[Rfam]
RNA sequence: GAAUGACCUUAUUGUAAGUCGCUUUGGACAAAAGCGUCUGCAAAAUGACUGUUA
Numbered sequence: 001g002a003a004u005g006a007c008c009u010u011a012u013u014g015u016a017a018g019u020c021g022c023u024u025u026g027g028a029c030a031a032a033a034g035c036g037u038c039u040g041c042a043a044a045a046u047g048a049c050u051g052u053u054a
Base pairs, nucleotide, nucleotide: 013043014041015040016039020036021035022034023033024032025031
This 54-nucleotide RNA from Muraenolepis orangiensis belongs to the Rfam family "UnaL2 LINE 3' element". Pairs were carried over by alignment from the consensus structure, which is taken from published work. The eel long interspersed element (LINE) UnaL2 and its partner short interspersed element (SINE) share a conserved 3' tail containing a stem-loop that is critical for their retrotransposition. Presumably, the first step of retrotransposition is the recognition of their 3' tails by UnaL2-encoded reverse transcriptase. The solution structure of a 17-nucleotide RNA derived from the 3' tail of UnaL2 was determined by NMR. It is annotated as a cis-regulatory element.